RNA sequence: CACAACUUAGGAAGCGAUGACUCCUGUGACCUUACUCGGGCACCUUGGUCCAGGACGAGCCAGUGGUGCGACCGGCCUCAAGUCAC
Numbered sequence: 001c002a003c004a005a006c007u008u009a010g011g012a013a014g015c016g017a018u019g020a021c022u023c024c025u026g027u028g029a030c031c032u033u034a035c036u037c038g039g040g041c042a043c044c045u046u047g048g049u050c051c052a053g054g055a056c057g058a059g060c061c062a063g064u065g066g067u068g069c070g071a072c073c074g075g076c077c078u079c080a081a082g083u084c085a086c
Base pairs, nucleotide, nucleotide: 004083007080009078010077011076014060015059022055023054024053025052026051028050029049030048038073039072040069041068042067043066044065
c-di-GMP-II-GAG riboswitch aptamer: an 86-nucleotide sequence from Deinococcus cellulosilyticus. The match comes from Rfam's covariance-model search (56 bits). The literature on the family includes a 2017 paper in Proc Natl Acad Sci U S A by Weinberg et al., "Bioinformatic analysis of riboswitch structures uncovers variant classes with altered ligand specificity". The family's consensus secondary structure is taken from published work.